Rfam assigns this 100-nucleotide sequence from Caenorhabditis brenneri to the family "mir-36 microRNA precursor family". On this family, see Ohler et al., RNA 2004: "Patterns of flanking sequence conservation and a characteristic upstream motif for microRNA gene identification". The sequence is in the family's curated seed alignment. Its Rfam clan is "mir-36 clan". The source organism's lineage runs through Eukaryota, Eumetazoa, Rhabditida, Rhabditina and Caenorhabditis.
RNA sequence: UCUAUUCGGCCGGAUCGGACCUAUGCUGGUUUUCACCGCGGUUAUACUUCUAACAAUAAUUAUCACCGGGUUAAAACUUGCAGAGGUCCGGUCCGGCCUU
Numbered sequence: 001u002c003u004a005u006u007c008g009g010c011c012g013g014a015u016c017g018g019a020c021c022u023a024u025g026c027u028g029g030u031u032u033u034c035a036c037c038g039c040g041g042u043u044a045u046a047c048u049u050c051u052a053a054c055a056a057u058a059a060u061u062a063u064c065a066c067c068g069g070g071u072u073a074a075a076a077c078u079u080g081c082a083g084a085g086g087u088c089c090g091g092u093c094c095g096g097c098c099u100u
Base pairs, nucleotide, nucleotide: 016090017089018088019087020086021085022084024082025081026080028078029077030076031075032074033073035071036070037069039068041066042065044063045062046061